[Rfam]
The record is a 129-nucleotide RNA from Hylia prasina, which matches "Small nucleolar RNA SNORA9" in Rfam. Taxonomically the source falls in Hylia (Eukaryota, Bilateria, Sauropsida, Dinosauria). Rfam describes the family as follows. ACA9 is a member of the H/ACA class of snoRNA that guide the sites of modification of uridines to pseudouridines. A search with the family's covariance model found it, with a score of 94 bits. Pairs were carried over by alignment from the consensus structure, which was predicted with PFOLD.
RNA sequence: CCGCAGGCUCCAGCGUGGGGGGGCCUGGCGUGGCUCCCACCAUUCCUGUAGCUCUGCCACAGCAUCCCGGGGCCGUUUGAGGCCUCUCCCGGCACUUCCCGGGGGCGGUUAUAGAAACCCCGGACAUGC
Numbered sequence: 001c002c003g004c005a006g007g008c009u010c011c012a013g014c015g016u017g018g019g020g021g022g023g024c025c026u027g028g029c030g031u032g033g034c035u036c037c038c039a040c041c042a043u044u045c046c047u048g049u050a051g052c053u054c055u056g057c058c059a060c061a062g063c064a065u066c067c068c069g070g071g072g073c074c075g076u077u078u079g080a081g082g083c084c085u086c087u088c089c090c091g092g093c094a095c096u097u098c099c100c101g102g103g104g105g106c107g108g109u110u111a112u113a114g115a116a117a118c119c120c121c122g123g124a125c126a127u128g129c
Stems, first nucleotide, its partner, number of pairs: 003057005016042003021036005068122005083108002086105003090101003